[Rfam]
RNA sequence: CUGGUUCCGGUUCACGUCCCACGCGCACCAGCGCGGUACGGGCGACCCGGCGACU
Numbered sequence: 001c002u003g004g005u006u007c008c009g010g011u012u013c014a015c016g017u018c019c020c021a022c023g024c025g026c027a028c029c030a031g032c033g034c035g036g037u038a039c040g041g042g043c044g045a046c047c048c049g050g051c052g053a054c055u
Stems, first nucleotide, its partner, number of pairs: 003055003007050004015044005
Dot-bracket structure: ..(((.((((....(((((....................)))))..))))..)))
Shown here is a 55-nucleotide RNA, a member of the family "L31-Actinobacteria ribosomal protein leader". On this family, see Eckert and Weinberg, BMC Microbiol 2020: "Discovery of 20 novel ribosomal leader candidates in bacteria and archaea".